[Rfam]
RNA sequence: GCUUUACGGAGGGAAAGCGGCCUGGGGUCGGGGAGUGUGUAUUGUGCUGUGGUGUUGUGUGGAAGGCGCGUGCUGGCCGAGCGUGUGAGUGGACGGGCGCAUGUGUGAGUGCGAGCGUGGGGCGUGCAAGGCGAGUGCGCGUGCCCGCCCCUGCGCCCUUCCCCCCGCCUACACCUUGAUCUUAUUUGAUCGGGUUGUGACCCCAGCCCUGCCGGGCCGACCCGAAAUGAGAAGCUCCCCUCCUGCGAAGCCCACUCCUCGGGGCGCUGUGCAGCGAGGCCCCCUAGGCGGCGGCAUCGCCGCGGCCCUGAAGGUCCCGGAGCCGGUCCUACGGGGCCCGGCGCUCAGAAGUGAUGAAUUGAUCAGAUAGACGAGCCCGGGCUUGUCCCAGGCCGCUGAUUAUCGAGCGAUUCUGAUCUGA
Numbered sequence: 001g002c003u004u005u006a007c008g009g010a011g012g013g014a015a016a017g018c019g020g021c022c023u024g025g026g027g028u029c030g031g032g033g034a035g036u037g038u039g040u041a042u043u044g045u046g047c048u049g050u051g052g053u054g055u056u057g058u059g060u061g062g063a064a065g066g067c068g069c070g071u072g073c074u075g076g077c078c079g080a081g082c083g084u085g086u087g088a089g090u091g092g093a094c095g096g097g098c099g100c101a102u103g104u105g106u107g108a109g110u111g112c113g114a115g116c117g118u119g120g121g122g123c124g125u126g127c128a129a130g131g132c133g134a135g136u137g138c139g140c141g142u143g144c145c146c147g148c149c150c151c152u153g154c155g156c157c158c159u160u161c162c163c164c165c166c167g168c169c170u171a172c173a174c175c176u177u178g179a180u181c182u183u184a185u186u187u188g189a190u191c192g193g194g195u196u197g198u199g200a201c202c203c204c205a206g207c208c209c210u211g212c213c214g215g216g217c218c219g220a221c222c223c224g225a226a227a228u229g230a231g232a233a234g235c236u237c238c239c240c241u242c243c244u245g246c247g248a249a250g251c252c253c254a255c256u257c258c259u260c261g262g263g264g265c266g267c268u269g270u271g272c273a274g275c276g277a278g279g280c281c282c283c284c285u286a287g288g289c290g291g292c293g294g295c296a297u298c299g300c301c302g303c304g305g306c307c308c309u310g311a312a313g314g315u316c317c318c319g320g321a322g323c324c325g326g327u328c329c330u331a332c333g334g335g336g337c338c339c340g341g342c343g344c345u346c347a348g349a350a351g352u353g354a355u356g357a358a359u360u361g362a363u364c365a366g367a368u369a370g371a372c373g374a375g376c377c378c379g380g381g382c383u384u385g386u387c388c389c390a391g392g393c394c395g396c397u398g399a400u401u402a403u404c405g406a407g408c409g410a411u412u413c414u415g416a417u418c419u420g421a
Base pairs, nucleotide, nucleotide: 051157052156053155054154055153056072057071058070059069060068061067091106093104094103095102109144110143111142112139113138115136116135118133119132185233186232187231190225191224192223193222195220196219197218199217202216203215204214206212207211257314258313259312262309263308264307266306267305268304271303272302274300275299276298279295280294281293282291283290322342323341324340325339326338327336328335329334346420347419348418349417356413357412358411359410360409361408375394377392378391380389381388
RNA: Small Cajal body-specific RNA 2